[Rfam]
Rfam assigns this 47-nucleotide RNA from Streptomyces sviceus to the family "L31-Actinobacteria ribosomal protein leader". The family's consensus secondary structure is taken from published work. Its Rfam clan is "Ribosomal Protein L31 Leader clan". NCBI's taxonomy places the organism under Bacteria, Bacillati, Actinomycetota, Actinomycetes, Streptomyces sviceus.

RNA sequence: UCGGUCCCGGUUCACGCCCCCGCAAUCCGCGAUGGCGACCCGGCACC
Dot-bracket structure: ..(((.((((....((((..(((.....)))..))))..)))).)))
Numbered sequence: 001u002c003g004g005u006c007c008c009g010g011u012u013c014a015c016g017c018c019c020c021c022g023c024a025a026u027c028c029g030c031g032a033u034g035g036c037g038a039c040c041c042g043g044c045a046c047c
Stems, first nucleotide, its partner, number of pairs: 003047003007043004015037004021031003